Shown here is a 136-nucleotide RNA sequence from Hibiscus trionum, a member of the family "Small nucleolar RNA snoR111". The match comes from Rfam's covariance-model search (83 bits).

[Rfam]
RNA sequence: AAAACAAUGAGGAGGCAGUUUUAUGAGGUCUGUCUCUUCAUAUAAGAACAUGGAGGUAUAUCAAAAUCAAAGGCCGAGAUAUCGUUUCAGUCGUCAGUUUUUCUCCAUUGACGGUCUGAUUGUUGCUCGUCCACAC
Numbered sequence: 001a002a003a004a005c006a007a008u009g010a011g012g013a014g015g016c017a018g019u020u021u022u023a024u025g026a027g028g029u030c031u032g033u034c035u036c037u038u039c040a041u042a043u044a045a046g047a048a049c050a051u052g053g054a055g056g057u058a059u060a061u062c063a064a065a066a067u068c069a070a071a072g073g074c075c076g077a078g079a080u081a082u083c084g085u086u087u088c089a090g091u092c093g094u095c096a097g098u099u100u101u102u103c104u105c106c107a108u109u110g111a112c113g114g115u116c117u118g119a120u121u122g123u124u125g126c127u128c129g130u131c132c133a134c135a136c
Stems, first nucleotide, its partner, number of pairs: 007041011072132002075129004081120004090115007099107001

Its family is annotated with RNA processing and nucleolus in the Gene Ontology.